[Rfam]
RNA sequence: CAGAAAGGUGCUCCUCGAACUCGCGAAAACUCGGGCCUCGACAAUCCGAAUUAUCGCAGCUCGGAGCACCUUUCUUCUUUAUCGACCCGACCCGCCAACCACAUCACCGUGAAAG
Numbered sequence: 001c002a003g004a005a006a007g008g009u010g011c012u013c014c015u016c017g018a019a020c021u022c023g024c025g026a027a028a029a030c031u032c033g034g035g036c037c038u039c040g041a042c043a044a045u046c047c048g049a050a051u052u053a054u055c056g057c058a059g060c061u062c063g064g065a066g067c068a069c070c071u072u073u074c075u076u077c078u079u080u081a082u083c084g085a086c087c088c089g090a091c092c093c094g095c096c097a098a099c100c101a102c103a104u105c106a107c108c109g110u111g112a113a114a115g
Stems, first nucleotide, its partner, number of pairs: 002075012016063003020059001023057003028052002032048001034046002102115001104112003